[Rfam]
RNA sequence: UUUUGGGAGGUACAGACGUUAAAGAAUACCAACAAAACUACUUACGAGAGGCAACCUCGUACAAAAGCGUA
Dot-bracket structure: [.[[.....(((..]].]........)))...............((((.......))))............
Numbered sequence: 001u002u003u004u005g006g007g008a009g010g011u012a013c014a015g016a017c018g019u020u021a022a023a024g025a026a027u028a029c030c031a032a033c034a035a036a037a038c039u040a041c042u043u044a045c046g047a048g049a050g051g052c053a054a055c056c057u058c059g060u061a062c063a064a065a066a067g068c069g070u071a
Stems, first nucleotide, its partner, number of pairs: 001018001003016002010029003045059004
This 71-nucleotide RNA belongs to the Rfam family "GP20-b RNA". The sequence is in the family's curated seed alignment.